Shown here is a 60-nucleotide sequence from Aeromicrobium terrae, a member of the family "Actino-pnp RNA". The base pairs follow the family's consensus structure, which is taken from published work. Rfam classes the family as a cis-regulatory element.

RNA sequence: CUCGGUCCUCGGUAGUGGCCCUCGGAGAUUCAUCUCCGCAGGCCUCGAUCGAAGACCGGA
Numbered sequence: 001c002u003c004g005g006u007c008c009u010c011g012g013u014a015g016u017g018g019c020c021c022u023c024g025g026a027g028a029u030u031c032a033u034c035u036c037c038g039c040a041g042g043c044c045u046c047g048a049u050c051g052a053a054g055a056c057c058g059g060a
Stems, first nucleotide, its partner, number of pairs: 002059006009052005017044004023038006